The family of this 108-nucleotide sequence from Plutella xylostella is "mir-8517 microRNA precursor family". Its family is annotated with miRNA-mediated post-transcriptional gene silencing and RISC complex in the Gene Ontology. Lineage of the source: Eukaryota > Panorpida > Amphiesmenoptera > Ditrysia > Plutella. It scores 71 bits against the family's covariance model.

RNA sequence: UUAUUGGACGCUUAAGCUAUUGAAAUGUCUUGUCACUCUCUGUCAAAGAACAAAUUGUUCUCUGUCAGAGAGUGGCAAAACAGUAAAAUAUCCAAAACAUCCAAUAAC
Numbered sequence: 001u002u003a004u005u006g007g008a009c010g011c012u013u014a015a016g017c018u019a020u021u022g023a024a025a026u027g028u029c030u031u032g033u034c035a036c037u038c039u040c041u042g043u044c045a046a047a048g049a050a051c052a053a054a055u056u057g058u059u060c061u062c063u064g065u066c067a068g069a070g071a072g073u074g075g076c077a078a079a080a081c082a083g084u085a086a087a088a089u090a091u092c093c094a095a096a097a098c099a100u101c102c103a104a105u106a107a108c
Stems, first nucleotide, its partner, number of pairs: 001107006012096002016092001018090004024084001026082003030068003034064002049059004